[Rfam]
RNA sequence: AUUGUGCUAUGAUUUCAAAAAAUUCCUCGUACUGAGUGCCAAAGGCGUGACAGACGACUUUACACCCAUAGAAUAUGAGCACA
Number, nucleotide and partner (000 for none) at each position: 001a000002u000003u083004g082005u081006g080007c000008u000009a000010u000011g000012a000013u000014u000015u000016c000017a000018a000019a000020a000021a000022a000023u000024u000025c000026c000027u000028c000029g000030u000031a000032c000033u000034g000035a000036g000037u000038g000039c000040c000041a000042a000043a000044g000045g000046c000047g000048u000049g000050a000051c000052a000053g000054a000055c000056g000057a000058c000059u000060u000061u000062a000063c000064a000065c000066c000067c000068a000069u000070a000071g000072a000073a000074u000075a000076u000077g000078a000079g000080c006081a005082c004083a003
RNA: Small nucleolar RNA snoR8a